[Rfam]
Shown here is a 109-nucleotide RNA from Morganella morganii, a member of the family "TPP riboswitch aptamer (THI element)". Taxonomically the source falls in Morganella morganii subsp. morganii (Bacteria, Enterobacterales, Morganellaceae, Morganella morganii). Pairs were carried over by alignment from the consensus structure, which is taken from published work. The match comes from Rfam's covariance-model search (70 bits). Vitamin B(1) in its active form thiamin pyrophosphate (TPP) is an essential coenzyme that is synthesised by coupling of pyrimidine and thiazole moieties in bacteria.
RNA sequence: CCUCUCUCAACGGGGUGCAGCUCCGGCUUUCCGGCCGGUGUUGCUGAGAUAACACCCGAGGAACCUGAUCCGGUUAAUACCGGCGUAGGGAUUUGAGCCGCCACUGCUG
Numbered sequence: 001c002c003u004c005u006c007u008c009a010a011c012g013g014g015g016u017g018c019a020g021c022u023c024c025g026g027c028u029u030u031c032c033g034g035c036c037g038g039u040g041u042u043g044c045u046g047a048g049a050u051a052a053c054a055c056c057c058g059a060g061g062a063a064c065c066u067g068a069u070c071c072g073g074u075u076a077a078u079a080c081c082g083g084c085g086u087a088g089g090g091a092u093u094u095g096a097g098c099c100g101c102c103a104c105u106g107c108u109g
Stems, first nucleotide, its partner, number of pairs: 006097005011058004016052001017044005064089004070083004